[Rfam]
Shown here is a 123-nucleotide sequence from Phaseolus vulgaris, a member of the family "Small nucleolar RNA SNORD14". The base pairs follow the family's consensus structure, which was predicted with PFOLD. Rfam describes the family as follows. U14 small nucleolar RNA (U14 snoRNA) is required for early cleavages of eukaryotic precursor rRNAs. In yeasts, this molecule possess a stem-loop region (known as the Y-domain) which is essential for function. A similar structure, but with a different consensus sequence, is found in plants, but is absent in vertebrates. Rfam 15.1 lists 4,559 matches to the family in 936 species. It scores 76 bits against the family's covariance model. The organism belongs to Phaseolus, within Eukaryota. Its family is annotated with nucleolus and RNA processing in the Gene Ontology. Rfam classes the family as a C/D-box small nucleolar RNA.

RNA sequence: ACUCGGUGAUGAUAAUUCCAAAGGCUUGUUUCUCUAAACAUUCGCAGUGGCCACCUAAGAGCUUUCGCCUUUCUCGGGCUUGAGAGCUAAUGCUGCUACUUCCUUCCUUGGAUGUCUGAGAUC
Numbered sequence: 001a002c003u004c005g006g007u008g009a010u011g012a013u014a015a016u017u018c019c020a021a022a023g024g025c026u027u028g029u030u031u032c033u034c035u036a037a038a039c040a041u042u043c044g045c046a047g048u049g050g051c052c053a054c055c056u057a058a059g060a061g062c063u064u065u066c067g068c069c070u071u072u073c074u075c076g077g078g079c080u081u082g083a084g085a086g087c088u089a090a091u092g093c094u095g096c097u098a099c100u101u102c103c104u105u106c107c108u109u110g111g112a113u114g115u116c117u118g119a120g121a122u123c
Stems, first nucleotide, its partner, number of pairs: 003121002061087006